[Rfam]
The record is a 90-nucleotide RNA sequence from Branchiostoma belcheri, which matches "mir-2060 microRNA precursor family" in Rfam.
Nucleotides: 090
Base pairs, nucleotide, nucleotide: 004081005080006079008077009076010075019070020069021068022067023066024065026063027062028061029060030059031058034051037048038047039046040045
Number, partner (000 for none) and nucleotide at each position: 001000g002000u003000u004081a005080g006079c007000g008077u009076g010075u011000g012000u013000g014000u015000g016000g017000a018000a019070g020069g021068u022067g023066u024065u025000c026063a027062g028061c029060a030059c031058c032000a033000a034051g035000g036000a037048c038047a039046g040045g041000u042000u043000u044000g045040c046039c047038u048037g049000c050000g051034u052000g053000u054000g055000g056000a057000a058031g059030g060029u061028g062027u063026u064000c065024a066023g067022c068021a069020c070019c071000a072000a073000g074000g075010a076009c077008a078000g079006g080005u081004u082000u083000g084000c085000u086000a087000g088000u089000c090000u
Source information: NCBI's taxonomy places the organism under Eukaryota, Deuterostomia, Cephalochordata, Leptocardii, Branchiostoma. It scores 73 bits against the family's covariance model.